Description: Rfam assigns this 161-nucleotide RNA from Shimwellia blattae to the family "sroC RNA". Lineage of the source: Bacteria > Pseudomonadati > Gammaproteobacteria > Enterobacterales > Shimwellia blattae. The match comes from Rfam's covariance-model search (117 bits).
RNA sequence: UUAAACAAUGAAUAAGGGACGGGUUACCCUGUCCCCCCGAUUGAUCAGUACCAGCCCGGACAGACUAUACGCCAGCCGGUCGUUCCCCGGCGGGCGUGAAACCAGAAAGCGGUAGAUCAAUCUUCGGGGGUAGCGCUGCUACCCUCUUUUUUUUCGGAGUA
Numbered sequence: 001u002u003a004a005a006c007a008a009u010g011a012a013u014a015a016g017g018g019a020c021g022g023g024u025u026a027c028c029c030u031g032u033c034c035c036c037c038c039g040a041u042u043g044a045u046c047a048g049u050a051c052c053a054g055c056c057c058g059g060a061c062a063g064a065c066u067a068u069a070c071g072c073c074a075g076c077c078g079g080u081c082g083u084u085c086c087c088c089g090g091c092g093g094g095c096g097u098g099a100a101a102c103c104a105g106a107a108a109g110c111g112g113u114a115g116a117u118c119a120a121u122c123u124u125c126g127g128g129g130g131u132a133g134c135g136c137u138g139c140u141a142c143c144c145u146c147u148u149u150u151u152u153u154u155c156g157g158a159g160u161a
Base pairs, nucleotide, nucleotide: 011160017034018033019032020031021029022028035129036128037127038126039125040121041120042119043118044117046115058103059102061098062097071095072094073093075091076090077089078088079087